[Rfam]
RNA sequence: UGGUGCUCGCUGGAUGUAACAGCAACUCCAUGUGGAAGGUGUCUGUUCCAGUGGAGGUGCUGUUACCUGCAGAGGCCGA
Number, nucleotide and partner (000 for none) at each position: 001u000002g000003g000004u000005g000006c000007u000008c000009g000010c072011u071012g070013g000014a000015u000016g066017u065018a064019a063020c062021a061022g060023c059024a000025a000026c056027u055028c054029c053030a052031u051032g000033u050034g049035g048036a000037a000038g000039g000040u000041g000042u000043c000044u000045g000046u000047u000048c035049c034050a033051g031052u030053g029054g028055a027056g026057g000058u000059g023060c022061u021062g020063u019064u018065a017066c016067c000068u000069g000070c012071a011072g010073a000074g000075g000076c000077c000078g000079a000